[Rfam]
Nucleotides: 600
Base pairs, nucleotide, nucleotide: 001431002430003428004427005426007425010422011421012420013419015415019379020378021377022376023375024273027270028269029268030267031266032265033264034262035261040055041054042053043052064257065256066255067254068253069252070251076098077097079095080094101246102245104244105243106242107241110240111239112235113234114233115231116230117229118228122159123158124157125156126155127154128137129136130135140149141148165223166222167221168220170191171190172189173188174187175186176185193211194210195209196208197207199205279329280328281327282326283325289320290319291318294313295312299308300307301306338369343364344363345362346361347360348359349358385408386407387406388405389404390403391402434569436566439562440561444556445555446554447553448552449551450550451549454546455545456544457543462539463538464537465536470532571594572593573592574591575590576589577588578587579586580585
Number, partner (000 for none) and nucleotide at each position: 001431a002430g003428a004427c005426c006000g007425u008000u009000u010422c011421u012420a013419a014000a015415a016000c017000c018000a019379g020378u021377a022376g023375u024273g025000a026000a027270g028269u029268a030267u031266g032265u033264u034262a035261u036000u037000u038000a039000a040055u041054u042053c043052g044000a045000u046000g047000a048000u049000c050000c051000g052043c053042g054041a055040a056000a057000a058000a059000c060000c061000u062000u063000a064257c065256c066255a067254c068253a069252g070251c071000u072000u073000g074000u075000a076098u077097a078000g079095c080094a081000u082000a083000u084000u085000a086000u087000a088000a089000a090000a091000a092000a093000u094080u095079g096000u097077u098076a099000c100000a101246a102245g103000c104244g105243c106242u107241g108000c109000a110240u111239g112235g113234c114233u115231g116230u117229c118228u119000u120000u121000a122159g123158u124157u125156a126155a127154u128137g129136u130135c131000g132000u133000g134000a135130g136129a137128u138000u139000u140149g141148g142000u143000u144000a145000a146000u147000u148141c149140c150000u151000u152000u153000a154127a155126u156125u157124a158123a159122c160000g161000a162000a163000a164000a165223c166222c167221c168220u169000c170191a171190c172189u173188u174187u175186a176185u177000u178000u179000a180000u181000u182000u183000a184000u185176a186175u187174a188173a189172a190171g191170u192000g193211g194210u195209u196208c197207g198000c199205u200000a201000c202000u203000a204000c205199a206000u207197c208196g209195g210194a211193c212000c213000a214000g215000a216000u217000a218000a219000u220168a221167g222166g223165g224000a225000u226000u227000a228118a229117g230116a231115c232000a233114a234113g235112u236000c237000a238000u239111u240110a241107u242106g243105g244104c245102c246101u247000u248000a249000a250000u251070g252069c253068u254067g255066u256065g257064g258000g259000c260000u261035a262034u263000a264033g265032a266031c267030g268029u269028g270027c271000c272000a273024c274000a275000u276000a277000c278000g279329c280328c281327u282326u283325u284000a285000c286000a287000a288000c289320g290319g291318g292000a293000u294313g295312c296000g297000a298000u299308a300307u301306u302000g303000u304000g305000a306301a307300a308299u309000g310000g311000a312295g313294c314000u315000a316000a317000u318291c319290c320289c321000c322000a323000a324000a325283a326282a327281a328280g329279g330000a331000a332000a333000u334000a335000a336000u337000a338369u339000g340000g341000a342000u343364u344363g345362u346361a347360g348359u349358c350000u351000g352000u353000a354000a355000c356000u357000c358349g359348a360347c361346u362345a363344c364343a365000u366000g367000a368000a369338a370000a371000a372000g373000g374000a375023a376022u377021u378020a379019c380000u381000a382000g383000u384000a385408a386407u387406c388405g389404u390403g391402a392000a393000u394000c395000a396000c397000c398000a399000a400000c401000g402391u403390c404389a405388c406387g407386g408385u409000g410000a411000a412000u413000u414000u415015u416000a417000u418000c419013u420012u421011a422010g423000u424000u425007a426005g427004g428003u429000a430002c431001u432000a433000a434569c435000c436566a437000c438000u439562c440561g441000u442000c443000a444556g445555g446554c447553g448552c449551u450550g451549a452000a453000a454546a455545a456544a457543g458000a459000a460000g461000a462539u463538g464537c465536a466000g467000u468000a469000a470532g471000u472000u473000u474000g475000a476000u477000u478000u479000u480000u481000u482000c483000u484000g485000u486000g487000u488000a489000a490000a491000g492000u493000u494000a495000u496000a497000u498000a499000u500000a501000u502000u503000u504000a505000u506000g507000a508000u509000a510000u511000a512000u513000a514000a515000a516000u517000a518000u519000g520000c521000a522000g523000g524000a525000u526000a527000g528000u529000u530000u531000u532470c533000g534000u535000a536465u537464g538463c539462a540000a541000a542000a543457c544456u545455u546454u547000g548000a549451u550450u551449g552448g553447u554446g555445u556444u557000a558000a559000g560000u561440c562439g563000a564000a565000a566436u567000a568000a569434g570000g571594u572593u573592c574591g575590u576589g577588u578587a579586a580585u581000g582000g583000a584000a585580a586579u587578u588577g589576c590575a591574c592573g593572g594571g595000g596000a597000g598000u599000a600000u
This 600-nucleotide part of an RNA belongs to the Rfam family "Bacterial small subunit ribosomal RNA". The family is grouped with related families in Rfam's "SSU clan". It scores 690 bits against the family's covariance model.